[Rfam]
RNA sequence: GGACGAUGACCACUUUAGUGAUUGGUCUCGUUUGUCGUAAUGGCUGAUCUGCCUUGCCGACCAUCAUGAUAUAUCACCAUCCUUAUUCUGAGUCC
Dot-bracket structure: ((((.........................................(.......).....................................))))
RNA: Small nucleolar RNA Z43
Organism: Protea cynaroides